[Rfam]
RNA sequence: GACUCCCGAUUUCAUUGCCCUCUCCCGGUUUCCUCCCGGGGUCAUAUGAAAUCGGGAGAAAUGAGGGAGAAAUAUGACCCCGGGAGGAAACCGGGAGAGGGCAAUGAAAUCGG
Numbered sequence: 001g002a003c004u005c006c007c008g009a010u011u012u013c014a015u016u017g018c019c020c021u022c023u024c025c026c027g028g029u030u031u032c033c034u035c036c037c038g039g040g041g042u043c044a045u046a047u048g049a050a051a052u053c054g055g056g057a058g059a060a061a062u063g064a065g066g067g068a069g070a071a072a073u074a075u076g077a078c079c080c081c082g083g084g085a086g087g088a089a090a091c092c093g094g095g096a097g098a099g100g101g102c103a104a105u106g107a108a109a110u111c112g113g
Stems, first nucleotide, its partner, number of pairs: 016103007024095014039081001041078006
The record is a 113-nucleotide sequence from Notothenia coriiceps, which matches "mir-36 microRNA precursor family" in Rfam. The family's consensus secondary structure was predicted with WAR. Its Rfam clan is "mir-36 clan". Taxonomically the source falls in Notothenia (Eukaryota, Metazoa, Teleostomi, Acanthomorphata). The match comes from Rfam's covariance-model search (50 bits). On this family, see Ohler et al., RNA 2004: "Patterns of flanking sequence conservation and a characteristic upstream motif for microRNA gene identification". Gene Ontology terms of the family: RISC complex and miRNA-mediated post-transcriptional gene silencing.